[Rfam]
RNA sequence: UUGAAGUUCCAUGUACAAAUGGAUAAGACUUUUGUCUUAAUGUGUUUGAGCUCUUGGAAAAAAAAAAAAAAGCAAUGCCAACCCUUUUAAUUGAACAAGAAAUUGGUUGUUGCUUUUUU
Numbered sequence: 001u002u003g004a005a006g007u008u009c010c011a012u013g014u015a016c017a018a019a020u021g022g023a024u025a026a027g028a029c030u031u032u033u034g035u036c037u038u039a040a041u042g043u044g045u046u047u048g049a050g051c052u053c054u055u056g057g058a059a060a061a062a063a064a065a066a067a068a069a070a071a072g073c074a075a076u077g078c079c080a081a082c083c084c085u086u087u088u089a090a091u092u093g094a095a096c097a098a099g100a101a102a103u104u105g106g107u108u109g110u111u112g113c114u115u116u117u118u119u
Stems, first nucleotide, its partner, number of pairs: 008023005066119012081104001085100004

Rfam assigns this 119-nucleotide RNA sequence from Populus deltoides to the family "Plastid-psbA-1 3UTR RNA". The match comes from Rfam's covariance-model search (88 bits). About the family: Plastid psbA-1 is a non-coding RNA (ncRNA) present in plastids. It was identified in inverted repeat sequences in the 3 prime untranslate region (3UTR) of photosystem II quinone-binding protein (psbA). For this family Rfam cites "Retrograde signaling in plants: A critical review focusing on the GUN pathway and beyond" (Richter et al., Plant Commun, 2023). Pairs were carried over by alignment from the consensus structure, which was predicted with LocARNA.